[Rfam]
RNA sequence: CUCCGCGAAAUCUAUUUAGGUAGAGCGUCGUGUAUUACCCUCGGGGGUAGAGCACUGGAUGGGCUAGGGGGCCUCACCGGCUUACCAAACCUAACCAAACUCCGAAUACCGAGGAGUACAGCACGGCAGACACACUAUGGGUGCUAAGGUCCAUAGUGGAGAGGGAAACAGCCCUGACCGCCAGCUAAGGUCCCCAAGUCAUGGCUAAGUGGGAAACGAUGUGGGAAUGCUUAGACAACCAGGAGGUUGGCUUAGAAGCAGCCAUCCUUUAAAGAAAGCGUAACAGCUCACUGGUCAAGCGUUCCUGCGCGGAAAAUGUAACGGGGCUUAAGCCAUGCACCGAAGCUGCGGACUCGAAAGAGUGGUAGCGGAGCGUUCUGUAGGCCUGUGAAGGGUUGCCGCGAGGCAGCCUGGAGGUAUCAGAAGUGAGAAU
Number, nucleotide and partner (000 for none) at each position: 001c373002u372003c371004c370005g369006c368007g000008a000009a000010a000011u024012c023013u022014a021015u020016u000017u000018a000019g000020g015021u014022a013023g012024a011025g000026c129027g127028u126029c125030g124031u123032g122033u121034a000035u000036u120037a117038c116039c114040c113041u112042c111043g110044g109045g000046g000047g000048u000049a000050g103051a101052g100053c000054a000055c000056u097057g096058g095059a000060u093061g092062g091063g090064c000065u000066a000067g086068g085069g083070g082071g081072c080073c079074u000075c000076a000077c000078c000079g073080g072081c071082u070083u069084a000085c068086c067087a000088a000089a000090c063091c062092u061093a060094a000095c058096c057097a056098a000099a000100c052101u051102c000103c050104g000105a000106a000107u000108a000109c044110c043111g042112a041113g040114g039115a000116g038117u037118a000119c000120a036121g033122c032123a031124c030125g029126g028127c027128a000129g026130a000131c000132a000133c158134a157135c156136u155137a154138u153139g152140g151141g150142u149143g000144c000145u000146a000147a000148g000149g142150u141151c140152c139153a138154u137155a136156g135157u134158g133159g000160a000161g000162a000163g174164g173165g172166a000167a000168a000169c000170a000171g000172c165173c164174c163175u000176g000177a000178c351179c350180g349181c348182c000183a347184g346185c345186u000187a000188a000189g341190g340191u339192c000193c000194c000195c000196a000197a000198g338199u000200c337201a336202u335203g334204g333205c332206u000207a000208a000209g000210u000211g000212g000213g000214a000215a000216a000217c311218g310219a000220u000221g308222u307223g306224g305225g304226a303227a302228u301229g300230c299231u000232u000233a000234g000235a000236c000237a000238a295239c294240c293241a292242g291243g000244a268245g267246g266247u000248u000249g263250g262251c261252u000253u000254a000255g000256a000257a000258g000259c000260a000261g251262c250263c249264a000265u000266c246267c245268u244269u273270u000271a000272a000273a269274g289275a000276a000277a000278g287279c286280g000281u000282a000283a000284c000285a000286g279287c278288u000289c274290a000291c242292u241293g240294g239295u238296c000297a000298a000299g230300c229301g228302u227303u226304c225305c224306u223307g222308c221309g000310c218311g217312g000313a000314a000315a000316a000317u000318g000319u000320a000321a000322c000323g000324g000325g000326g000327c000328u000329u000330a000331a000332g205333c204334c203335a202336u201337g200338c198339a191340c190341c189342g000343a000344a000345g185346c184347u183348g181349c180350g179351g178352a363353c362354u361355c360356g000357a000358a000359a000360g355361a354362g353363u352364g000365g000366u000367a000368g006369c005370g004371g003372a002373g001374c428375g000376u425377u424378c423379u422380g421381u000382a000383g000384g418385c417386c416387u000388g000389u000390g000391a000392a000393g412394g411395g410396u409397u408398g407399c406400c405401g000402c000403g000404a000405g400406g399407c398408a397409g396410c395411c394412u393413g000414g000415a000416g386417g385418u384419a000420u000421c380422a379423g378424a377425a376426g000427u000428g374429a000430g000431a000432a000433u000
RNA: Bacterial large subunit ribosomal RNA, nucleotides 853 to 1285
Organism: Glycocaulis alkaliphilus